Rfam assigns this 99-nucleotide sequence from Coregonus sp. 'balchen' to the family "Small nucleolar RNA SNORD16". The family's RNA type in Rfam is C/D-box small nucleolar RNA. The source organism's lineage runs through Eukaryota, Craniata, Euteleostomi, Actinopteri and Coregonus. On this family, see Huttenhofer et al., EMBO J 2001: "RNomics: an experimental approach that identifies 201 candidates for novel, small, non-messenger RNAs in mouse". Rfam 15.1 lists 1,321 matches to the family in 655 species.
RNA sequence: UGCUAUGAUGGUGUAAUUUGCGUCCUACUUUGCAAUCAGUCGACAGAUGCCUACUGUCAUAUACUGGCGCAAGUGAAUGACGAUAACUGAGUCUGAGCA
Number, nucleotide and partner (000 for none) at each position: 001u099002g098003c097004u000005a000006u000007g000008a000009u000010g000011g000012u000013g000014u000015a000016a000017u000018u000019u000020g000021c082022g081023u080024c079025c000026u000027a000028c000029u000030u072031u071032g070033c069034a000035a000036u000037c000038a000039g064040u063041c000042g058043a057044c056045a055046g054047a000048u000049g000050c000051c000052u000053a000054c046055u045056g044057u043058c042059a000060u000061a000062u000063a040064c039065u000066g000067g000068c000069g033070c032071a031072a030073g000074u000075g000076a000077a000078u000079g024080a023081c022082g021083a000084u000085a000086a000087c000088u000089g000090a000091g000092u000093c000094u000095g000096a000097g003098c002099a001